RNA sequence: GCACUGGUUUAGCUCAGUGGUUACUUCGAACAACUUUCUAUCUGAAACUGCUCUCUGUCCCUCCGCGGGAUCGAAACCACGGGCGCUGUCCAGUGUUUUU
Numbered sequence: 001g002c003a004c005u006g007g008u009u010u011a012g013c014u015c016a017g018u019g020g021u022u023a024c025u026u027c028g029a030a031c032a033a034c035u036u037u038c039u040a041u042c043u044g045a046a047a048c049u050g051c052u053c054u055c056u057g058u059c060c061c062u063c064c065g066c067g068g069g070a071u072c073g074a075a076a077c078c079a080c081g082g083g084c085g086c087u088g089u090c091c092a093g094u095g096u097u098u099u100u
Base pairs, nucleotide, nucleotide: 002095003094004093005092006091007090012084013083014082015081017080018079019078020077025075026074027073028072029071
RNA: Vault RNA
Organism: Dissostichus mawsoni